[Rfam]
RNA: Bacterial RNase P class A
Nucleotides: 383
Base pairs, nucleotide, nucleotide: 001379004376005375006374007373008372010370011368012338013337014336015335016334017333018332020041021040023038024037025036026035027034028033046366047365048364050363051362052361053360054359055218056217057216058215064272067214068213069212070211071210072086073085074084075083076082087104088102089101090100091099105209106208110207111206112203113202114201127150128149129146130145131144132143133142134141135140158176159175160174161173162172163171177200178198180197181196182195183194184193185192186191222295223294224293225292232286233285234284235283236282237281265279266278267277268276302321303320304319305318306317307316308315309314
Number, partner (000 for none) and nucleotide at each position: 001379g002000a003000c004376g005375c006374a007373a008372a009000a010370c011368g012338u013337u014336c015335u016334a017333u018332c019000g020041c021040u022000a023038u024037c025036c026035c027034g028033a029000u030000u031000u032000g033028u034027c035026g036025g037024g038023a039000g040021g041020g042000a043000g044000g045000a046366a047365a048364g049000u050363c051362c052361g053360g054359g055218c056217a057216a058215c059000g060000c061000a062000g063000a064272g065000c066000a067214u068213c069212c070211u071210g072086c073085u074084u075083c076082c077000u078000a079000a080000c081000c082076g083075g084074a085073a086072g087104g088102c089101g090100c091099c092000g093000a094000c095000a096000g097000c098000c099091g100090g101089c102088g103000a104087c105209a106208g107000c108000c109000a110207g111206u112203g113202c114201c115000a116000c117000a118000g119000a120000a121000a122000a123000u124000a125000u126000a127150c128149c129146g130145c131144c132143c133142c134141a135140a136000c137000u138000u139000g140135u141134u142133g143132g144131g145130g146129u147000a148000a149128g150127g151000g152000u153000g154000a155000a156000a157000a158176c159175g160174u161173g162172a163171g164000g165000u166000a167000a168000g169000a170000g171163c172162u173161c174160a175159c176158g177200g178198c179000g180197a181196u182195u183194a184193c185192g186191g187000g188000c189000g190000a191186c192185c193184g194183u195182a196181g197180u198178g199000g200177c201114g202113g203112u204000a205000a206111a207110c208106c209105u210071c211070a212069g213068g214067a215058g216057u217056u218055g219000a220000a221000a222295a223294a224293c225292c226000a227000a228000a229000u230000a231000g232286g233285u234284c235283c236282c237281g238000g239000a240000a241000g242000u243000g244000g245000a246000g247000u248000g249000g250000c251000u252000c253000g254000c255000u256000c257000c258000c259000g260000u261000a262000u263000a264000a265279c266278g267277a268276u269000u270000u271000a272064u273000c274000g275000u276268a277267u278266c279265g280000c281237c282236g283235g284234g285233a286232u287000g288000g289000g290000u291000a292225g293224g294223u295222u296000g297000c298000u299000a300000a301000a302321g303320c304319c305318u306317g307316u308315c309314a310000g311000c312000a313000a314309u315308g316307g317306c318305a319304g320303g321302c322000g323000c324000a325000g326000a327000u328000u329000a330000a331000u332018g333017a334016u335015a336014g337013a338012a339000g340000u341000c342000g343000c344000u345000u346000a347000a348000g349000c350000g351000a352000u353000a354000c355000a356000g357000a358000a359054c360053c361052c362051g363050g364048c365047u366046u367000a368011c369000a370010g371000a372008u373007u374006u375005g376004c377000u378000g379001c380000u381000g382000a383000u